[Rfam]
RNA sequence: UUUUAAUUCAUUUGUAGGUCGCUUUGGAUAAAAGCGUCUGCUAAAUGAAAAUGA
Numbered sequence: 001u002u003u004u005a006a007u008u009c010a011u012u013u014g015u016a017g018g019u020c021g022c023u024u025u026g027g028a029u030a031a032a033a034g035c036g037u038c039u040g041c042u043a044a045a046u047g048a049a050a051a052u053g054a
Stems, first nucleotide, its partner, number of pairs: 013043001014041003020036006

The family of this 54-nucleotide RNA sequence from Sinocyclocheilus rhinocerous is "UnaL2 LINE 3' element". Rfam links the family to the GO term transposition, RNA-mediated. The source organism's lineage runs through Eukaryota, Eumetazoa, Actinopterygii, Cypriniformes and Sinocyclocheilus. It is annotated as a cis-regulatory element.